The family of this 100-nucleotide sequence is "L4-Archaeoglobi ribosomal protein leades".
[Rfam]
RNA sequence: CUGAUGACCGCGUCCGGGUCAAUUGUGAACUGCAACACCCAAUUUCUCUCCAUGUACCAGACUCGAUGUCUGUGCGAGAAGGGACACGCGUUGCCAUCAG
Numbered sequence: 001c002u003g004a005u006g007a008c009c010g011c012g013u014c015c016g017g018g019u020c021a022a023u024u025g026u027g028a029a030c031u032g033c034a035a036c037a038c039c040c041a042a043u044u045u046c047u048c049u050c051c052a053u054g055u056a057c058c059a060g061a062c063u064c065g066a067u068g069u070c071u072g073u074g075c076g077a078g079a080a081g082g083g084a085c086a087c088g089c090g091u092u093g094c095c096a097u098c099a100g
Stems, first nucleotide, its partner, number of pairs: 001100005009090005016040003023035005043084005048078003

The family's consensus secondary structure is taken from published work.